[Rfam]
RNA sequence: AUUCUGUUUGCUCCUUUUGUUCUCACAAUCUUAAAUCAUGAAGAAUUAAGCCCUAAGCUCCUGCUAGAUUUAUUGACAUUCGUGUUGCAGUUUUGUCUUGUUUUAUCACCGGCUUAAUUGUGUCAAAGCAGUGUCUAGAUUU
Numbered sequence: 001a002u003u004c005u006g007u008u009u010g011c012u013c014c015u016u017u018u019g020u021u022c023u024c025a026c027a028a029u030c031u032u033a034a035a036u037c038a039u040g041a042a043g044a045a046u047u048a049a050g051c052c053c054u055a056a057g058c059u060c061c062u063g064c065u066a067g068a069u070u071u072a073u074u075g076a077c078a079u080u081c082g083u084g085u086u087g088c089a090g091u092u093u094u095g096u097c098u099u100g101u102u103u104u105a106u107c108a109c110c111g112g113c114u115u116a117a118u119u120g121u122g123u124c125a126a127a128g129c130a131g132u133g134u135c136u137a138g139a140u141u142u
Base pairs, nucleotide, nucleotide: 004063006061010058011057019051020050021049023044024043075135076134077133078132079131080130083125084124086122087121088120089119090118091117095113096112097111
RNA: small nucleolar RNA snoR134